[Rfam]
RNA sequence: ACAGUUUUGGAUUGCGUGUCAGUUGUGCAUUUGCAUUAUUAACUUUUACCACGUUGUAAAUGCACAUUUCUGGUACGGCAUUUCAAAACCA
Numbered sequence: 001a002c003a004g005u006u007u008u009g010g011a012u013u014g015c016g017u018g019u020c021a022g023u024u025g026u027g028c029a030u031u032u033g034c035a036u037u038a039u040u041a042a043c044u045u046u047u048a049c050c051a052c053g054u055u056g057u058a059a060a061u062g063c064a065c066a067u068u069u070c071u072g073g074u075a076c077g078g079c080a081u082u083u084c085a086a087a088a089c090c091a
Stems, first nucleotide, its partner, number of pairs: 008085004015077008025065001027063009
Dot-bracket structure: .......((((...((((((((..(.(((((((((...................))))))))).)....))))))))....))))......

Rfam assigns this 91-nucleotide RNA sequence from Megaselia scalaris to the family "mir-277 microRNA precursor family". It scores 62 bits against the family's covariance model. Rfam links the family to the GO terms RISC complex and miRNA-mediated post-transcriptional gene silencing. On this family, see Liu et al., BMC Genomics 2010: "MicroRNAs of Bombyx mori identified by Solexa sequencing". Taxonomically the source falls in Megaselia (Eukaryota, Protostomia, Pancrustacea, Muscomorpha). The family has 25 seed sequences and 170 matches in Rfam 15.1.